[Rfam]
RNA sequence: AUGUUGUGGUGUGGGCAAGAACUUGUCAUCUCCUUGUACCUCUCCCAACAUUCAUGAAAAGCUUCUCCUUCCUUUUGUGUGAAACCCAGAAUUUCCUUUCUAAUCUU
Numbered sequence: 001a002u003g004u005u006g007u008g009g010u011g012u013g014g015g016c017a018a019g020a021a022c023u024u025g026u027c028a029u030c031u032c033c034u035u036g037u038a039c040c041u042c043u044c045c046c047a048a049c050a051u052u053c054a055u056g057a058a059a060a061g062c063u064u065c066u067c068c069u070u071c072c073u074u075u076u077g078u079g080u081g082a083a084a085c086c087c088a089g090a091a092u093u094u095c096c097u098u099u100c101u102a103a104u105c106u107u
Stems, first nucleotide, its partner, number of pairs: 001107001003105001005102002057074002
RNA: Plant small nucleolar RNA R71